[Rfam]
RNA: Bacterial RNase P class B
RNA sequence: AUUUUCGGAUAAUCGCAGUUUACGUUAAGUAAGGUGAGGAAAGUCCAUGCUCGCACAAACUGAGAUGUUUGUAGUGUUCGUGCUUAAUGAAACCAUAAAUUAAGGUACUUCUUUUUUAGAGGUAACGGCAGGAAAAAUAGCUAAGGUUUUUGCUAUGCUAGAGUAUCCUUGAAAGUGCCACAGUGACGAAGUGAUUUUAGAAAUAAAAUCAGUGGAACGGGUAAACCCCUCGAGCGAGCAACCCAAACAAUGGUAGGGGCACCUGUCCCAAGGAAAUGAACUUAGGGAUGGGACAGAAAAAUUUCUGUAGACAGAUGAUUAUCGUUGAUUAGUGUUACCUGGCAGUAAUCAAUACAGAACAUGGCUUAUAGAA
Numbered sequence: 001a002u003u004u005u006c007g008g009a010u011a012a013u014c015g016c017a018g019u020u021u022a023c024g025u026u027a028a029g030u031a032a033g034g035u036g037a038g039g040a041a042a043g044u045c046c047a048u049g050c051u052c053g054c055a056c057a058a059a060c061u062g063a064g065a066u067g068u069u070u071g072u073a074g075u076g077u078u079c080g081u082g083c084u085u086a087a088u089g090a091a092a093c094c095a096u097a098a099a100u101u102a103a104g105g106u107a108c109u110u111c112u113u114u115u116u117u118a119g120a121g122g123u124a125a126c127g128g129c130a131g132g133a134a135a136a137a138u139a140g141c142u143a144a145g146g147u148u149u150u151u152g153c154u155a156u157g158c159u160a161g162a163g164u165a166u167c168c169u170u171g172a173a174a175g176u177g178c179c180a181c182a183g184u185g186a187c188g189a190a191g192u193g194a195u196u197u198u199a200g201a202a203a204u205a206a207a208a209u210c211a212g213u214g215g216a217a218c219g220g221g222u223a224a225a226c227c228c229c230u231c232g233a234g235c236g237a238g239c240a241a242c243c244c245a246a247a248c249a250a251u252g253g254u255a256g257g258g259g260c261a262c263c264u265g266u267c268c269c270a271a272g273g274a275a276a277u278g279a280a281c282u283u284a285g286g287g288a289u290g291g292g293a294c295a296g297a298a299a300a301a302u303u304u305c306u307g308u309a310g311a312c313a314g315a316u317g318a319u320u321a322u323c324g325u326u327g328a329u330u331a332g333u334g335u336u337a338c339c340u341g342g343c344a345g346u347a348a349u350c351a352a353u354a355c356a357g358a359a360c361a362u363g364g365c366u367u368a369u370a371g372a373a
Stems, first nucleotide, its partner, number of pairs: 004373003007369001008323007016036002019033003041367003045364005050238005055072006078233003082229001083104006105126001106124006127228002130169004138160004145154003175226002177222003192211008242258003262292007293308006325352007333344003